[Rfam]
RNA sequence: CCAUCAUCACCAUCACCCUGACUAGUCUUUCAGGCGCUUGGUGCUGGAAGACAGUCUAGAUUCUUCCAGCGGCGGACAAAGCGUUAAUUAAAGAGAGCCCUCGGAAGAAUCCUUCCGAGGGUUUUUUUAU
Numbered sequence: 001c002c003a004u005c006a007u008c009a010c011c012a013u014c015a016c017c018c019u020g021a022c023u024a025g026u027c028u029u030u031c032a033g034g035c036g037c038u039u040g041g042u043g044c045u046g047g048a049a050g051a052c053a054g055u056c057u058a059g060a061u062u063c064u065u066c067c068a069g070c071g072g073c074g075g076a077c078a079a080a081g082c083g084u085u086a087a088u089u090a091a092a093g094a095g096a097g098c099c100c101u102c103g104g105a106a107g108a109a110u111c112c113u114u115c116c117g118a119g120g121g122u123u124u125u126u127u128u129a130u
Stems, first nucleotide, its partner, number of pairs: 008043003012038001014036001017034005044069008092127016
Notes
Shown here is a 130-nucleotide RNA sequence from Leminorella richardii, a member of the family "Histidine operon leader". Lineage of the source: Bacteria > Pseudomonadota > Enterobacterales > Budviciaceae > Leminorella. Rfam's curators write: At least 6 amino acid operons are known to be regulated by attenuation. The literature on the family includes a 1982 paper in Annu Rev Genet by Kolter and Yanofsky, "Attenuation in amino acid biosynthetic operons". It scores 96 bits against the family's covariance model.